[Rfam]
RNA sequence: AGCAUUAGAGGAUAGAAAUGGCAGCUAUCGCACAAUGUUAUGAGAUGCAGGAAUUGUCGCCCUGCCUAAUGCA
Number, nucleotide and partner (000 for none) at each position: 001a000002g072003c071004a070005u069006u068007a067008g066009a000010g000011g029012a028013u027014a026015g025016a000017a000018a000019u059020g058021g057022c056023a055024g000025c015026u014027a013028u012029c011030g000031c042032a038033c037034a000035a000036u000037g033038u032039u000040a000041u000042g031043a000044g000045a000046u000047g065048c064049a063050g062051g061052a000053a000054u000055u023056g022057u021058c020059g019060c000061c051062c050063u049064g048065c047066c008067u007068a006069a005070u004071g003072c002073a000